[Rfam]
RNA: Xanthine riboswitch aptamer (NMT1 RNA)
RNA sequence: GAGAAGAGUAGAAGCGGCCAGAGGAACGCGCGAUACCCGCAACACCUCGGGACAUUGCUCUUAGA
Numbered sequence: 001g002a003g004a005a006g007a008g009u010a011g012a013a014g015c016g017g018c019c020a021g022a023g024g025a026a027c028g029c030g031c032g033a034u035a036c037c038c039g040c041a042a043c044a045c046c047u048c049g050g051g052a053c054a055u056u057g058c059u060c061u062u063a064g065a
Base pairs, nucleotide, nucleotide: 005061006060007059008058009057010056015050019051021048022047023046024045